Shown here is a 144-nucleotide RNA sequence from Ictidomys tridecemlineatus, a member of the family "U4 spliceosomal RNA". A reference for the family is Zwieb (1997), "The uRNA database", Nucleic Acids Res. From the family's description: U4 small nuclear RNA (U4 snRNA) is a component of the major U2-dependent spliceosome. The match comes from Rfam's covariance-model search (76 bits). By type it is a spliceosomal small nuclear RNA.
RNA sequence: AGCUUUGCACAGUGGCAGUAUCGUAGCCAAUGAGGCUUAUCCGAGGUGCGAUUAUUGCUAAUUGAAAACUUUUCCCAAGAUGACAUAUCCAGGAGCCAAGUUCUAGGUACUGAAAACAUUUACUUCAUUUCAACUCUCUAAGAU
Numbered sequence: 001a002g003c004u005u006u007g008c009a010c011a012g013u014g015g016c017a018g019u020a021u022c023g024u025a026g027c028c029a030a031u032g033a034g035g036c037u038u039a040u041c042c043g044a045g046g047u048g049c050g051a052u053u054a055u056u057g058c059u060a061a062u063u064g065a066a067a068a069c070u071u072u073u074c075c076c077a078a079g080a081u082g083a084c085a086u087a088u089c090c091a092g093g094a095g096c097c098a099a100g101u102u103c104u105a106g107g108u109a110c111u112g113a114a115a116a117c118a119u120u121u122a123c124u125u126c127a128u129u130u131c132a133a134c135u136c137u138c139u140a141a142g143a144u
Base pairs, nucleotide, nucleotide: 020052021051022050023049024048026047027046028045034042035041084112085111086109087108088107089106091104092103093102094101127144128143129142